The family of this 197-nucleotide RNA sequence is "RT-7 RNA". By type it is a small RNA. The base pairs follow the family's consensus structure, which is taken from published work.
RNA sequence: ACCGGAGUUCCGUAAAGUCAAGGCUUUCGGAAGCGUGUCUUGUAAAUUCAGUAACCCACCGGCGACGUAAAAACGCUCGCAGCGGAUCCCGAUGAGGUCGCGUUGCGUUGUCGUCGGUUAUGAAAAACCAAUCUGCGGCGGGGUUUCGCCCCAUUGAGGGAAUCCUCCGCCACAUUUAGCAAGCGGUUACUUUCUUU
Numbered sequence: 001a002c003c004g005g006a007g008u009u010c011c012g013u014a015a016a017g018u019c020a021a022g023g024c025u026u027u028c029g030g031a032a033g034c035g036u037g038u039c040u041u042g043u044a045a046a047u048u049c050a051g052u053a054a055c056c057c058a059c060c061g062g063c064g065a066c067g068u069a070a071a072a073a074c075g076c077u078c079g080c081a082g083c084g085g086a087u088c089c090c091g092a093u094g095a096g097g098u099c100g101c102g103u104u105g106c107g108u109u110g111u112c113g114u115c116g117g118u119u120a121u122g123a124a125a126a127a128c129c130a131a132u133c134u135g136c137g138g139c140g141g142g143g144u145u146u147c148g149c150c151c152c153a154u155u156g157a158g159g160g161a162a163u164c165c166u167c168c169g170c171c172a173c174a175u176u177u178a179g180c181a182a183g184c185g186g187u188u189a190c191u192u193u194c195u196u197u
Stems, first nucleotide, its partner, number of pairs: 001038002008032005014026001016025002050191007058118008078107007085099003134174002137171007149160003